[Rfam]
RNA sequence: UCCGUACUGGGCGAUGGAGUCCGCCUGACCCAACCGCUGGCACCCGCCGGCUGAUGACUCCUGUCUACAU
Numbered sequence: 001u002c003c004g005u006a007c008u009g010g011g012c013g014a015u016g017g018a019g020u021c022c023g024c025c026u027g028a029c030c031c032a033a034c035c036g037c038u039g040g041c042a043c044c045c046g047c048c049g050g051c052u053g054a055u056g057a058c059u060c061c062u063g064u065c066u067a068c069a070u
Stems, first nucleotide, its partner, number of pairs: 010025004016061006036051006
The family of this 70-nucleotide sequence is "Fluoride riboswitch aptamer (crcB RNA motif)".
It scores 47 bits against the family's covariance model.
Gene Ontology terms of the family: response to fluoride and positive regulation of gene expression.